The family of this 135-nucleotide RNA is "IMES-2 RNA motif".
RNA sequence: AUUAAGAGGCAACUCUUAACUGGCCAAAUAAGGAAAAACCGAGAGGUUCAAGCUUAAGGGGCAGAAAGGUCAACUGAGUAGCGCUAAAAUGGUUGAUCGGGGGGUUCGGCGGUAGCGCCUAAAACGACGAACCAA
Number, nucleotide and partner (000 for none) at each position: 001a000002u019003u018004a017005a016006g015007a014008g013009g000010c000011a000012a000013c008014u007015c006016u005017u004018a003019a002020c064021u063022g062023g000024c061025c060026a000027a000028a000029u056030a055031a054032g053033g000034a000035a000036a000037a048038a047039c046040c045041g000042a000043g000044a000045g040046g039047u038048u037049c000050a000051a000052g000053c032054u031055u030056a029057a000058g000059g000060g025061g024062c022063a021064g020065a000066a000067a000068g098069g097070u096071c095072a094073a093074c092075u091076g000077a000078g000079u000080a000081g118082c117083g116084c115085u114086a000087a000088a000089a000090u000091g075092g074093u073094u072095g071096a070097u069098c068099g000100g000101g000102g000103g133104g132105u131106u130107c129108g128109g000110c126111g125112g000113u000114a085115g084116c083117g082118c081119c000120u000121a000122a000123a000124a000125c111126g110127a000128c108129g107130a106131a105132c104133c103134a000135a000